A member of the RNA family "Bacterial RNase P class A" from Pleurocapsales cyanobacterium LEGE 06147, 448 nucleotides long. By type it is a ribozyme. Its Rfam clan is "RNaseP clan".

[Rfam]
RNA sequence: AGAGUAAGUGAGGUGGUUGCAGAUUUGUAACUUGGGUGCAAAUCUGAGGAAAGUCCGGACUCCCGAAAGACCAGACUUGCUGGGUAAUGCCCAGUGUAGGCGACUGCGAGGAUAGUGCCACAGAAACAUACCGCCUUUUUCAGUAAACAGUGACCAGUAAGCAAAAAACUGAUAACUGGUAACUGAUAACUGAUAACUGAAGAAGGUAAGGGUGCAAAGGUGCGGUAAGAGCGCACCAGCAGUAUCGAGAGGUGCUGGCUCGGUAAACCCCGGUCGGGAGCAAGGUCGGAGGGACAAUGGUUGGUUUUUUUCCAGUCCCGUUGUGGUGAACCGCUAGAGGUGUCUGGUAACAGUCAUCCCAGAUAGAUAACCACCCUCGAAGUAGAGAUGCAGUUAUUCUAGAUCUUUACAAAGAGAACAGAAUCCGGCUUACGUUCUUACUCUCUCU
Numbered sequence: 001a002g003a004g005u006a007a008g009u010g011a012g013g014u015g016g017u018u019g020c021a022g023a024u025u026u027g028u029a030a031c032u033u034g035g036g037u038g039c040a041a042a043u044c045u046g047a048g049g050a051a052a053g054u055c056c057g058g059a060c061u062c063c064c065g066a067a068a069g070a071c072c073a074g075a076c077u078u079g080c081u082g083g084g085u086a087a088u089g090c091c092c093a094g095u096g097u098a099g100g101c102g103a104c105u106g107c108g109a110g111g112a113u114a115g116u117g118c119c120a121c122a123g124a125a126a127c128a129u130a131c132c133g134c135c136u137u138u139u140u141c142a143g144u145a146a147a148c149a150g151u152g153a154c155c156a157g158u159a160a161g162c163a164a165a166a167a168a169c170u171g172a173u174a175a176c177u178g179g180u181a182a183c184u185g186a187u188a189a190c191u192g193a194u195a196a197c198u199g200a201a202g203a204a205g206g207u208a209a210g211g212g213u214g215c216a217a218a219g220g221u222g223c224g225g226u227a228a229g230a231g232c233g234c235a236c237c238a239g240c241a242g243u244a245u246c247g248a249g250a251g252g253u254g255c256u257g258g259c260u261c262g263g264u265a266a267a268c269c270c271c272g273g274u275c276g277g278g279a280g281c282a283a284g285g286u287c288g289g290a291g292g293g294a295c296a297a298u299g300g301u302u303g304g305u306u307u308u309u310u311u312c313c314a315g316u317c318c319c320g321u322u323g324u325g326g327u328g329a330a331c332c333g334c335u336a337g338a339g340g341u342g343u344c345u346g347g348u349a350a351c352a353g354u355c356a357u358c359c360c361a362g363a364u365a366g367a368u369a370a371c372c373a374c375c376c377u378c379g380a381a382g383u384a385g386a387g388a389u390g391c392a393g394u395u396a397u398u399c400u401a402g403a404u405c406u407u408u409a410c411a412a413a414g415a416g417a418a419c420a421g422a423a424u425c426c427g428g429c430u431u432a433c434g435u436u437c438u439u440a441c442u443c444u445c446u447c448u
Stems, first nucleotide, its partner, number of pairs: 001444008010435001012375007020046009051431003055428005060280004069312002074275003078272002080094005095109001096107004110270002115268002117264003131211002133207012219237006239259001240257007284332003294324006303318002306315002339358004344353003